Rfam assigns this 97-nucleotide RNA sequence from Jonesia denitrificans to the family "mraW RNA". Pairs were carried over by alignment from the consensus structure, which is taken from published work. Rfam classes the family as a cis-regulatory element. Lineage of the source: Bacteria > Bacillati > Actinomycetes > Micrococcales > Jonesia denitrificans.
[Rfam]
RNA sequence: UUUGAUCUGCUCUAUGAGGUCUCCUACCGUCAUCUGACGCCACUUCCCCGGUGCCAGAUGGCGACGGUGGGAGCCCUGGUGGAGUAGGUAACUACCA
Dot-bracket structure: .........((((((..((.((((((((((((((((.(((..........))).))))))...)))))))))).))..)))))).............